[Rfam]
The record is a 71-nucleotide RNA from Myotis myotis, which matches "mir-9193 microRNA precursor family" in Rfam. Rfam 15.1 lists 6,008 matches to the family in 8 species. Rfam links the family to the GO terms miRNA-mediated post-transcriptional gene silencing and RISC complex.

RNA sequence: UGGGGGGCAGGGUCCCUCAGCCUGGAUUGUGAGAGGGUGCAGGCCAGGCUGAGGGAUCACAAUGUUGCACA
Numbered sequence: 001u002g003g004g005g006g007g008c009a010g011g012g013u014c015c016c017u018c019a020g021c022c023u024g025g026a027u028u029g030u031g032a033g034a035g036g037g038u039g040c041a042g043g044c045c046a047g048g049c050u051g052a053g054g055g056a057u058c059a060c061a062a063u064g065u066u067g068c069a070c071a
Stems, first nucleotide, its partner, number of pairs: 001069002004066001007063001010060001011058012024045002027042005